Record summary
The family of this 185-nucleotide sequence from Oryctolagus cuniculus is "Small nucleolar RNA SNORA23". Gene Ontology terms of the family: RNA processing and nucleolus. From the family's description: The members of this family belong to the H/ACA class of snoRNAs which are thought to guide the sites of modification of uridines to pseudouridines. This family includes human snoRNA ACA23 (SNORA23) and mouse snoMBI-1. ACA23 is predicted to guide the pseudouridylation of residue U3737 and U4331 of 28S rRNA.
RNA sequence: GCUAUAAUGUGUGCAUAGCUUUAAUCUGUGUCUGGUAGCAGUGUCUGUCUGUGUUUUGCAUUCAGAUGUUGUUACUCACACAUAAUGUCAUGCAGCCAAAGAAUAACAUGGGAUCAUAGUACUGGUCUAGUGUUGUCUCUUUGGACAUAACCACCACUGGCCAGCCUCCAAACUCCCAUACACAA
Numbered sequence: 001g002c003u004a005u006a007a008u009g010u011g012u013g014c015a016u017a018g019c020u021u022u023a024a025u026c027u028g029u030g031u032c033u034g035g036u037a038g039c040a041g042u043g044u045c046u047g048u049c050u051g052u053g054u055u056u057u058g059c060a061u062u063c064a065g066a067u068g069u070u071g072u073u074a075c076u077c078a079c080a081c082a083u084a085a086u087g088u089c090a091u092g093c094a095g096c097c098a099a100a101g102a103a104u105a106a107c108a109u110g111g112g113a114u115c116a117u118a119g120u121a122c123u124g125g126u127c128u129a130g131u132g133u134u135g136u137c138u139c140u141u142u143g144g145a146c147a148u149a150a151c152c153a154c155c156a157c158u159g160g161c162c163a164g165c166c167u168c169c170a171a172a173c174u175c176c177c178a179u180a181c182a183c184a185a
Base pairs, nucleotide, nucleotide: 013093014092015091016090029082030081031080033078034077035076036074037073038072039071040070041069043067044066045065046064047063050060051059052058109178110177111176112175113174122164123163124162125161126160127159129158130157131156132155134149135148136147138145139144